[Rfam]
RNA: tRNA
RNA sequence: AAGAGAGAAGUAUUAUUGGUUAUACAGCUGGCUUGAAACCAGUAAAUGGGGGUUCGAAUCCUCCCUCUUUUG
Numbered sequence: 001a002a003g004a005g006a007g008a009a010g011u012a013u014u015a016u017u018g019g020u021u022a023u024a025c026a027g028c029u030g031g032c033u034u035g036a037a038a039c040c041a042g043u044a045a046a047u048g049g050g051g052g053u054u055c056g057a058a059u060c061c062u063c064c065c066u067c068u069u070u071u072g
Stems, first nucleotide, its partner, number of pairs: 001071007010025004027043005048064005